[Rfam]
RNA sequence: GUUGCAAGACUGAGGCCAUAGCAGAAGCGCUCAUGUCUGGCCUGUCAGAUUCCAACAAAUCUGUGACUUCUGCU
Numbered sequence: 001g002u003u004g005c006a007a008g009a010c011u012g013a014g015g016c017c018a019u020a021g022c023a024g025a026a027g028c029g030c031u032c033a034u035g036u037c038u039g040g041c042c043u044g045u046c047a048g049a050u051u052c053c054a055a056c057a058a059a060u061c062u063g064u065g066a067c068u069u070c071u072g073c074u
Stems, first nucleotide, its partner, number of pairs: 014042004020074007027038001029037001046063006

This 74-nucleotide RNA from Crocodylus porosus belongs to the Rfam family "Mammalian CPEB3 ribozyme". Taxonomically the source falls in Crocodylus (Eukaryota, Archosauria, Crocodylia, Crocodylidae). Pairs were carried over by alignment from the consensus structure, which is taken from published work. Gene Ontology term of the family: RNA nuclease activity.